[Rfam]
RNA sequence: AUAAGUCUUCGGGGCAGGGUGAAAUUCCCGACCGACGGUGAUAACGCAAGUUAAAGUCCGUGACCCGCUAUUAAGCGGUUGACACAGUGAGAUUCUGUGACCGACAGUAAAGUCUGGAUGGGAGAAGACGACA
Numbered sequence: 001a002u003a004a005g006u007c008u009u010c011g012g013g014g015c016a017g018g019g020u021g022a023a024a025u026u027c028c029c030g031a032c033c034g035a036c037g038g039u040g041a042u043a044a045c046g047c048a049a050g051u052u053a054a055a056g057u058c059c060g061u062g063a064c065c066c067g068c069u070a071u072u073a074a075g076c077g078g079u080u081g082a083c084a085c086a087g088u089g090a091g092a093u094u095c096u097g098u099g100a101c102c103g104a105c106a107g108u109a110a111a112g113u114c115u116g117g118a119u120g121g122g123a124g125a126a127g128a129c130g131a132c133a
Stems, first nucleotide, its partner, number of pairs: 005129006017029003031113002033103002035061004056101002065078002083099005105116003
Overview
A member of the RNA family "FMN riboswitch aptamer (RFN element)" from Periweissella fabalis, 133 nucleotides long. The match comes from Rfam's covariance-model search (119 bits). Lineage of the source: Bacteria > Bacillati > Bacillota > Lactobacillales > Periweissella.